Notes:
The record is a 78-nucleotide RNA from filamentous cyanobacterium CCP5, which matches "CyVA-1 RNA" in Rfam. The organism belongs to Cyanobacteriota, within Bacteria. Cyanobacteria, Acidobacteria (1 example), Verrucomicrobia (1 example).
[Rfam]
Nucleotides: 078
Base pairs, nucleotide, nucleotide: 001078002077003076004075005074006073009033010032011031012030038070039069041067042066043065044064045063
Number, partner (000 for none) and nucleotide at each position: 001078g002077g003076a004075a005074u006073a007000u008000c009033g010032c011031a012030g013000g014000a015000g016000u017000u018000u019000u020000g021000c022000u023000g024000c025000u026000u027000g028000g029000c030012c031011u032010g033009u034000u035000a036000a037000u038070c039069a040000c041067g042066c043065c044064u045063u046000g047000a048000a049000g050000g051000a052000g053000a054000a055000c056000g057000g058000u059000g060000c061000c062000a063045g064044a065043g066042g067041c068000a069039u070038g071000a072000a073006u074005a075004u076003u077002c078001c